[Rfam]
RNA sequence: ACAUUGGUUUUCUAGGGUUCCGCAGCGACGGUCGCUUUUGUUCAGCGCCGCUUGCUGGCAGGUCCGAGAGAGAACACACGGUUACUGACAUACCGUGCACACGGAGGGAUAAAAGCCCGGGAGGA
Numbered sequence: 001a002c003a004u005u006g007g008u009u010u011u012c013u014a015g016g017g018u019u020c021c022g023c024a025g026c027g028a029c030g031g032u033c034g035c036u037u038u039u040g041u042u043c044a045g046c047g048c049c050g051c052u053u054g055c056u057g058g059c060a061g062g063u064c065c066g067a068g069a070g071a072g073a074a075c076a077c078a079c080g081g082u083u084a085c086u087g088a089c090a091u092a093c094c095g096u097g098c099a100c101a102c103g104g105a106g107g108g109a110u111a112a113a114a115g116c117c118c119g120g121g122a123g124g125a
Base pairs, nucleotide, nucleotide: 007075008074009073010072011071012070015065016064020062021061022059023057024056025055026054027053028052077097078096079095080094081093082092100120102123106118107117108116
Annotation
Guanidine-I riboswitch aptamer: a 125-nucleotide sequence from Paenibacillus athensensis. The pairing is the family consensus, mapped onto this sequence. A search with the family's covariance model found it, with a score of 80 bits.